[Rfam]
The family of this 79-nucleotide RNA from Ancylobacter pratisalsi is "Fluoride riboswitch aptamer (crcB RNA motif)". The family's consensus secondary structure is taken from published work.

RNA sequence: CGGUUUCAAGGCAAUGGAUUCUGCCGGGCCACAAUGGCCGAACCGCUUCGUUGGAGAAGCUGAUGACUCCUGCUCACAU
Numbered sequence: 001c002g003g004u005u006u007c008a009a010g011g012c013a014a015u016g017g018a019u020u021c022u023g024c025c026g027g028g029c030c031a032c033a034a035u036g037g038c039c040g041a042a043c044c045g046c047u048u049c050g051u052u053g054g055a056g057a058a059g060c061u062g063a064u065g066a067c068u069c070c071u072g073c074u075c076a077c078a079u
Stems, first nucleotide, its partner, number of pairs: 010025004016070003020066002045060004